[Rfam]
RNA sequence: GAAUUUCGUCAAAGCCGACCUCCUCCCCGGCGAUGACGAAUAGGCCCAACCUUCACCUCCUCCCGAAGGUUGGCCACCCAAACGGCGCCCGCCGCACCUCCUCCCGCGGCGGGCGCUGUUU
Dot-bracket structure: ......(((.(..((((..........))))..).)))....((.((((((((............)))))))))).........(((((((((((..........))))))))))).....